[Rfam]
RNA sequence: GCGCAGUGCGGAGGGCCACCUCGGUGUCACUUAUGGCAGAGGCUCGGCUGCAGCUUUGAGCGCGGCCGGGUUGUGCGCUGCAUCCAGUUUCGAGCACACCGGGCGAAAGUCCCCGGGCGACGGGGCAGAAAGUGCCAGCCCGCAAGGGCAGGACCUCCGUGAGCCGUUAUUACGGCCGCGGGGCAGCUCGCCAUAGCAACAGUUAUGUGGCCAGCCGAGAUGCAAUCGGCUUACACAACGGGGCUUAUUCCCGCACUGACG
Numbered sequence: 001g002c003g004c005a006g007u008g009c010g011g012a013g014g015g016c017c018a019c020c021u022c023g024g025u026g027u028c029a030c031u032u033a034u035g036g037c038a039g040a041g042g043c044u045c046g047g048c049u050g051c052a053g054c055u056u057u058g059a060g061c062g063c064g065g066c067c068g069g070g071u072u073g074u075g076c077g078c079u080g081c082a083u084c085c086a087g088u089u090u091c092g093a094g095c096a097c098a099c100c101g102g103g104c105g106a107a108a109g110u111c112c113c114c115g116g117g118c119g120a121c122g123g124g125g126c127a128g129a130a131a132g133u134g135c136c137a138g139c140c141c142g143c144a145a146g147g148g149c150a151g152g153a154c155c156u157c158c159g160u161g162a163g164c165c166g167u168u169a170u171u172a173c174g175g176c177c178g179c180g181g182g183g184c185a186g187c188u189c190g191c192c193a194u195a196g197c198a199a200c201a202g203u204u205a206u207g208u209g210g211c212c213a214g215c216c217g218a219g220a221u222g223c224a225a226u227c228g229g230c231u232u233a234c235a236c237a238a239c240g241g242g243g244c245u246u247a248u249u250c251c252c253g254c255a256c257u258g259a260c261g
Stems, first nucleotide, its partner, number of pairs: 002261002004258008014212006021102007036081004041076001107246003111243004124136004138149004151184001157181005164175004214230005
Overview
The family of this 261-nucleotide sequence from Edaphochlamys debaryana is "RNase MRP". By type it is a ribozyme.